[Rfam]
RNA sequence: CUGCCCUCGGCUUCUCUACAGUGCUGCCUUGUCGCAUGGGGAUCAAGCAGCAUUGUACAGGGCUAUGAAGGC
Numbered sequence: 001c002u003g004c005c006c007u008c009g010g011c012u013u014c015u016c017u018a019c020a021g022u023g024c025u026g027c028c029u030u031g032u033c034g035c036a037u038g039g040g041g042a043u044c045a046a047g048c049a050g051c052a053u054u055g056u057a058c059a060g061g062g063c064u065a066u067g068a069a070g071g072c
Base pairs, nucleotide, nucleotide: 012062013061014060015059017057018056019055020054021053022052023051024050025049026048028047029046030045031044

Overview: Rfam assigns this 72-nucleotide sequence from Ovis aries to the family "mir-103/107 microRNA precursor family". Rfam describes the family as follows. This family consists of the mammalian microRNA (miRNA) precursors mir-103 and mir107. Animal miRNAs are transcribed as ~70nt precursors and subsequently processed by the Dicer enzyme to give a ~22nt product. In this case the mature sequence comes from the 3' arm of the precursor. The extents of the hairpin precursors are not generally known and are estimated based on hairpin prediction. NCBI's taxonomy places the organism under Eukaryota, Vertebrata, Dipnotetrapodomorpha, Theria, Ovis. The sequence is in the family's curated seed alignment. For this family Rfam cites "miRNPs: a novel class of ribonucleoproteins containing numerous microRNAs" (Mourelatos et al., Genes Dev, 2002).